[Rfam]
RNA sequence: CCGCGCUUGAUGAAUAUGCGUUAUGGCGCUUAUUCCUAUGCACAUCAUUUGGUCGAAGUAGCUGUGCGUUUUGCAGCUCCAAGCGCUAUCAAGAAACGGCGUGGUAUUCAACUACGUGCGUCAAUGCGCAGUUUGAUAAGCGUCGAUGCUACGGGCAAUCGCUUAUCCGAUGUUUACACCUUCGAACUGACC
Numbered sequence: 001c002c003g004c005g006c007u008u009g010a011u012g013a014a015u016a017u018g019c020g021u022u023a024u025g026g027c028g029c030u031u032a033u034u035c036c037u038a039u040g041c042a043c044a045u046c047a048u049u050u051g052g053u054c055g056a057a058g059u060a061g062c063u064g065u066g067c068g069u070u071u072u073g074c075a076g077c078u079c080c081a082a083g084c085g086c087u088a089u090c091a092a093g094a095a096a097c098g099g100c101g102u103g104g105u106a107u108u109c110a111a112c113u114a115c116g117u118g119c120g121u122c123a124a125u126g127c128g129c130a131g132u133u134u135g136a137u138a139a140g141c142g143u144c145g146a147u148g149c150u151a152c153g154g155g156c157a158a159u160c161g162c163u164u165a166u167c168c169g170a171u172g173u174u175u176a177c178a179c180c181u182u183c184g185a186a187c188u189g190a191c192c
Base pairs, nucleotide, nucleotide: 005041006040012035013034014033015032016031018029019028020027021026053185054184055183056182057181058180060078061077063075064074065073066072083129084128085127086126092125093122094121097120098119101115102114103113104112105111132170133169135167136166137165138164139163140162141161142160148156149155150154

Rfam assigns this 192-nucleotide sequence to the family "RT-15 RNA". Pairs were carried over by alignment from the consensus structure, which is taken from published work. It is annotated as a small RNA.